[Rfam]
RNA sequence: CCGGGCAUUGGGCUUGCGAUCCGCAAUGGCAUUGCCAACCGCAUGUAAAAGGUGCGUUUUACCCAGACCGGUUCCGCCAUA
Number, nucleotide and partner (000 for none) at each position: 001c000002c000003g000004g000005g042006c041007a000008u000009u038010g000011g036012g035013c034014u000015u000016g032017c000018g030019a000020u029021c028022c000023g000024c000025a000026a000027u000028g021029g020030c018031a000032u016033u000034g013035c012036c011037a000038a009039c000040c000041g006042c005043a000044u000045g000046u000047a000048a000049a000050a000051g078052g077053u076054g075055c000056g074057u000058u000059u000060u000061a072062c071063c070064c000065a000066g000067a000068c000069c000070g063071g062072u061073u000074c056075c054076g053077c052078c051079a000080u000081a000
This 81-nucleotide RNA sequence from Photobacterium proteolyticum belongs to the Rfam family "antisense RNA of dnaA mRNA". Taxonomically the source falls in Photobacterium (Bacteria, Pseudomonadati, Vibrionales, Vibrionaceae). Rfam links the family to the GO term regulation of mRNA stability. A reference for the family is Dadzie et al. (2013), "Identification and characterization of a cis-encoded antisense RNA associated with the replication process of Salmonella enterica serovar Typhi", PLoS One.